[Rfam]
RNA sequence: ACGAUAUUCCGCUGCUUGAUUAAGCAAGAAUGUCUG
Number, nucleotide and partner (000 for none) at each position: 001a000002c000003g034004a033005u032006a031007u030008u029009c028010c000011g000012c000013u026014g025015c024016u023017u022018g000019a000020u000021u000022a017023a016024g015025c014026a013027a000028g009029a008030a007031u006032g005033u004034c003035u000036g000
This 36-nucleotide sequence from Shouchella oshimensis belongs to the Rfam family "Ribosomal protein L19 leader".
Rfam describes the family as follows. This family is a putative r-protein leader autoregulatory structure found in B. subtilis and other low-GC Gram-positive bacteria.
It is annotated as a cis-regulatory leader.
For this family Rfam cites "Diverse mechanisms for regulating ribosomal protein synthesis in Escherichia coli" (Zengel and Lindahl, Prog Nucleic Acid Res Mol Biol, 1994).
Pairs were carried over by alignment from the consensus structure, which was predicted with CMfinder.
Its family is annotated with regulation of gene expression in the Gene Ontology.